Shown here is an 89-nucleotide RNA sequence from Paenibacillus ferrarius, a member of the family "c-di-GMP-I riboswitch aptamer". The family's consensus secondary structure is taken from published work.
RNA sequence: UCGUGUAAAAGGCAAACUUAUCGAAAGGUAAGGACGCAAAGUUACAGAUCUAAUGUUGCUUAUGCAAUGAUGAUGGCUGUGCUGCCGAC
Dot-bracket structure: ...........((...((((((....))))))...))..(((..((((((....((((......))))...)))..))).)))......